This 112-nucleotide RNA sequence from Polaromonas vacuolata belongs to the Rfam family "Guanidine-I riboswitch aptamer".
The organism belongs to Polaromonas, within Bacteria.
Rfam's curators write: This family represents a conserved RNA structure found upstream of the ykkC and yxkD genes in Bacillus subtilis and related genes in other bacteria.
[Rfam]
RNA sequence: ACGUAGGCGUACUAGGGUUCCGGUCCAAGGUUGUUUUCAAUCACAGGAUGUCUGGUCCGAGAGUGUGCCGGUCUCGCAAGAGAUUACACGGAGGGAUAAAAGCCCGGGAGAC
Number, nucleotide and partner (000 for none) at each position: 001a000002c000003g000004u000005a000006g000007g068008c067009g066010u065011a064012c063013u000014a000015g058016g057017g000018u000019u000020c055021c054022g052023g049024u048025c047026c046027a000028a000029g000030g000031u000032u000033g000034u000035u000036u000037u000038c000039a000040a000041u000042c000043a000044c000045a000046g026047g025048a024049u023050g000051u000052c022053u000054g021055g020056u000057c016058c015059g000060a000061g000062a000063g012064u011065g010066u009067g008068c007069c000070g085071g084072u083073c082074u081075c080076g000077c000078a000079a000080g075081a074082g073083a072084u071085u070086a000087c107088a000089c110090g000091g000092a000093g105094g104095g103096a000097u000098a000099a000100a000101a000102g000103c095104c094105c093106g000107g087108g000109a000110g089111a000112c000